RNA sequence: GGCAACUUGGCCGAGUGGUUAAGGCGAAAGAUUAGAAAUCUUUUGGGCUUUGCCCGCGCAGGUUCGAGUCCUGCAGUUGUCG
Numbered sequence: 001g002g003c004a005a006c007u008u009g010g011c012c013g014a015g016u017g018g019u020u021a022a023g024g025c026g027a028a029a030g031a032u033u034a035g036a037a038a039u040c041u042u043u044u045g046g047g048c049u050u051u052g053c054c055c056g057c058g059c060a061g062g063u064u065c066g067a068g069u070c071c072u073g074c075a076g077u078u079g080u081c082g
Stems, first nucleotide, its partner, number of pairs: 001081007010025003027043005058074005